[Rfam]
RNA sequence: CUAGGAACAACAUCCUGAUGCUGUCCGGGUGUGUGAUGCAAAAACUCCAGCAUCAGUGAUUUUGUUGCCCA
Numbered sequence: 001c002u003a004g005g006a007a008c009a010a011c012a013u014c015c016u017g018a019u020g021c022u023g024u025c026c027g028g029g030u031g032u033g034u035g036a037u038g039c040a041a042a043a044a045c046u047c048c049a050g051c052a053u054c055a056g057u058g059a060u061u062u063u064g065u066u067g068c069c070c071a
Base pairs, nucleotide, nucleotide: 006066007065008064009063010062012060013059014058015056016055017054018053019052020051021050022049023048